[Rfam]
Record summary
This 431-nucleotide part of an RNA from Tenacibaculum jejuense belongs to the Rfam family "Bacterial large subunit ribosomal RNA". Gene Ontology terms of the family: structural constituent of ribosome and ribosome. The match comes from Rfam's covariance-model search (2752 bits).
RNA sequence: CUCCCCGAAAUGCAUUUAGGUGCAGCGUUGAGUAAAAGUUUUAUAGAGGUAGAGCUACUGAUUGGAUGCGGGGGCUUCACCGCCUACCAAUUCCUGACAAACUCCGAAUGCUAUAAAAUGUUUCUCAGCAGUGAGGGCAUGGGUGCUAAGGUCCAUGUCCGAGAGGGAAAGAACCCAGACCAUCAGCUAAGGUCCCCAAAUGUAUACUAAGUUGAAUAAACGAGGUGAAACUGCUUAGACAGCUAGGAUGUUGGCUUGGAAGCAGCCAUUCAUUUAAAGAGUGCGUAACAGCUCACUAGUCGAGCGGUUUUGCAUGGAUAAUAAUCGGGCAUAAGUAUACUACCGAAGCUAUGGACGAAAGUGGUAGGGGAGCAUUCUAUAUGUGUUGAAGGUGUGCUGUGAGGCAUGCUGGAACGUAUAGAAAAGAAAAU
Dot-bracket structure: ((((((....(((((....))))).(((((((....((((((((((.....(((....((...(((...((((((......)))).))...)))...))..)).).....)))))))))..).)))))).)...((((((((((......))))))))))....(((......)))...((((.(((...(((......(.((((((.............((..((((((((((.......(((((.(((..(((.........)))...)))(...)(...((......)).).)))))...)))))))))).))..................))))))))))...)))))))((....))....))))))(.((((((((((......((((((((....))))))))...))))))))))..).....